[Rfam]
RNA sequence: CUUCCAAGGGGAUAAGGGCAUCGCCUCCUUUCUUGAAGGACACUCCCUUCUGAUGGUGAUGGGAACUCCCUUCCUCCUACAGCGGCCUGCCUGCAGUACAGUGUGAAUGCUGCAGCAGCGACCAGGGCCCCAGAAAGACAGCGCCCCAGAGC
Numbered sequence: 001c002u003u004c005c006a007a008g009g010g011g012a013u014a015a016g017g018g019c020a021u022c023g024c025c026u027c028c029u030u031u032c033u034u035g036a037a038g039g040a041c042a043c044u045c046c047c048u049u050c051u052g053a054u055g056g057u058g059a060u061g062g063g064a065a066c067u068c069c070c071u072u073c074c075u076c077c078u079a080c081a082g083c084g085g086c087c088u089g090c091c092u093g094c095a096g097u098a099c100a101g102u103g104u105g106a107a108u109g110c111u112g113c114a115g116c117a118g119c120g121a122c123c124a125g126g127g128c129c130c131c132a133g134a135a136a137g138a139c140a141g142c143g144c145c146c147c148a149g150a151g152c
Stems, first nucleotide, its partner, number of pairs: 001151003008147004013138001015048004024039003028035001049134003056076001058073002061070003085119002091115006